[Rfam]
RNA sequence: AGAUGGGGUAGAGGUCGCGAUUUAUAAGAGUAUCCUAUUUGAGAUUUAGUGAAAUCUAUGAAAAUAGGAAAAAGGAUAAAUCGCCGAAGUUUCUAAAAUCACUGUUUUUAGAAGCUGGGGCUGUCUCCAAAUAGGGGCAGAACUGUCACAAUUCAACUGGAUUGUGGAGAACUAUCGUAUUA
Numbered sequence: 001a002g003a004u005g006g007g008g009u010a011g012a013g014g015u016c017g018c019g020a021u022u023u024a025u026a027a028g029a030g031u032a033u034c035c036u037a038u039u040u041g042a043g044a045u046u047u048a049g050u051g052a053a054a055u056c057u058a059u060g061a062a063a064a065u066a067g068g069a070a071a072a073a074g075g076a077u078a079a080a081u082c083g084c085c086g087a088a089g090u091u092u093c094u095a096a097a098a099u100c101a102c103u104g105u106u107u108u109u110a111g112a113a114g115c116u117g118g119g120g121c122u123g124u125c126u127c128c129a130a131a132u133a134g135g136g137g138c139a140g141a142a143c144u145g146u147c148a149c150a151a152u153u154c155a156a157c158u159g160g161a162u163u164g165u166g167g168a169g170a171a172c173u174a175u176c177g178u179a180u181u182a
Stems, first nucleotide, its partner, number of pairs: 007176005017084009033069008088116011117144002121140007146167007
Rfam assigns this 182-nucleotide sequence from Litchfieldia stipae to the family "Lysine riboswitch aptamer". It scores 140 bits against the family's covariance model.